Record summary: This 108-nucleotide RNA from Ciceribacter lividus belongs to the Rfam family "EcpR1". Taxonomically the source falls in Ciceribacter (Bacteria, Pseudomonadati, Pseudomonadota, Rhizobiaceae). Rfam describes the family as follows. Perviously named SmelC291, SmrC10, or Sra33. Rfam links the family to the GO terms negative regulation of cell cycle, regulation of translation in response to stress and mRNA binding. It is annotated as a small RNA. For this family Rfam cites "Identification of differentially expressed small non-coding RNAs in the legume endosymbiont Sinorhizobium meliloti by comparative genomics" (del Val et al., Mol Microbiol, 2007).
RNA sequence: AUACCCCAUGAUGCUCAGGUCCGCCGCAUCUCCUGGGUCGUGGGGUCGGUCGGUUGGCAUGCUACAAACGCGGUUCCUCGUACCGCAGGCAUGCUGGCCGACCCCCAA
Numbered sequence: 001a002u003a004c005c006c007c008a009u010g011a012u013g014c015u016c017a018g019g020u021c022c023g024c025c026g027c028a029u030c031u032c033c034u035g036g037g038u039c040g041u042g043g044g045g046u047c048g049g050u051c052g053g054u055u056g057g058c059a060u061g062c063u064a065c066a067a068a069c070g071c072g073g074u075u076c077c078u079c080g081u082a083c084c085g086c087a088g089g090c091a092u093g094c095u096g097g098c099c100g101a102c103c104c105c106c107a108a
Stems, first nucleotide, its partner, number of pairs: 003046008014037006048103011